[Rfam]
RNA sequence: UUUGGCAAUGAUGACCCACUUGCCCUCACUGAGAACAGAGUUUGGUAAUGAGAAUCUUUUUAUUUAUUUUUUAAAUGGAGUCACA
Numbered sequence: 001u002u003u004g005g006c007a008a009u010g011a012u013g014a015c016c017c018a019c020u021u022g023c024c025c026u027c028a029c030u031g032a033g034a035a036c037a038g039a040g041u042u043u044g045g046u047a048a049u050g051a052g053a054a055u056c057u058u059u060u061u062a063u064u065u066a067u068u069u070u071u072u073a074a075a076u077g078g079a080g081u082c083a084c085a
Base pairs, nucleotide, nucleotide: 001085003083004082005081006080
RNA: Small nucleolar RNA SNORD103/SNORD85
Organism: Ictidomys tridecemlineatus